[Rfam]
RNA sequence: GAAGGCAAAUGAUGGAUAAAAAGUUACAAUACGCACUGAAAUUUCAUGUGGCUUACUAUUUCGCUUAUUGUCUGAUGCCUAU
Dot-bracket structure: ..(((((....................................................................)))))..
This 82-nucleotide sequence from Rhodamnia argentea belongs to the Rfam family "Small nucleolar RNA R16". The organism belongs to Rhodamnia, within Eukaryota. Pairs were carried over by alignment from the consensus structure, which was predicted with PFOLD. On this family, see Marker et al., Curr Biol 2002: "Experimental RNomics: identification of 140 candidates for small non-messenger RNAs in the plant Arabidopsis thaliana".